[Rfam]
RNA sequence: UAUAAUUAAAUAAAAGUAACAUGUAUAAGCUUAAGAAUUGGCUUAAGCGUUUCUACCGGGUGACCGUAAAUCACUGGACUACAUGUAAGGAAAAUGACAGG
Numbered sequence: 001u002a003u004a005a006u007u008a009a010a011u012a013a014a015a016g017u018a019a020c021a022u023g024u025a026u027a028a029g030c031u032u033a034a035g036a037a038u039u040g041g042c043u044u045a046a047g048c049g050u051u052u053c054u055a056c057c058g059g060g061u062g063a064c065c066g067u068a069a070a071u072c073a074c075u076g077g078a079c080u081a082c083a084u085g086u087a088a089g090g091a092a093a094a095u096g097a098c099a100g101g
Base pairs, nucleotide, nucleotide: 019086020085021084022083023082024081025080029048030047031046032045033044034043035042057077059075060074061073062072063071
A member of the RNA family "Purine riboswitch aptamer" from Paraliobacillus sp. PM-2, 101 nucleotides long. The base pairs follow the family's consensus structure, which is taken from published work. A search with the family's covariance model found it, with a score of 81 bits. The organism belongs to Paraliobacillus, within Bacteria.